Small Cajal body specific RNA 4: a 127-nucleotide RNA sequence from Ophiophagus hannah. The family's consensus secondary structure was predicted with RNAfold. A search with the family's covariance model found it, with a score of 69 bits. The family is grouped with related families in Rfam's "SCARNA4 clan". By type it is a small Cajal body RNA. Rfam's curators write: scaRNAs are a specific class of small nuclear RNAs which localise to the Cajal bodies and guide the modification of RNA polymerase II transcribed spliceosomal RNAs U1, U2, U4, U5 and U12. ACA26 belongs to the H/ACA box class of guide RNAs as it has the predicted hairpin-hinge-hairpin-tail structure, conserved H/ACA-box motifs and is found associated with GAR1. The family has 24 seed sequences and 634 matches in Rfam 15.1.

RNA sequence: GCUAGAGGAUUAAGAAGGCCUGGUCUGUUGAGCAGGGCCAGGCCGAAACCGUCCUCUUACAGAAAUGUGAUGGAGAGAGUGGUCCAGCUUCCAGACAGUGGAGACCUCCCUGUGCCAUCCAACAACA
Numbered sequence: 001g002c003u004a005g006a007g008g009a010u011u012a013a014g015a016a017g018g019c020c021u022g023g024u025c026u027g028u029u030g031a032g033c034a035g036g037g038c039c040a041g042g043c044c045g046a047a048a049c050c051g052u053c054c055u056c057u058u059a060c061a062g063a064a065a066u067g068u069g070a071u072g073g074a075g076a077g078a079g080u081g082g083u084c085c086a087g088c089u090u091c092c093a094g095a096c097a098g099u100g101g102a103g104a105c106c107u108c109c110c111u112g113u114g115c116c117a118u119c120c121a122a123c124a125a126c127a
Stems, first nucleotide, its partner, number of pairs: 003059001004057006017044003021040006067120001069118001078111002081107002085103001090100001092098001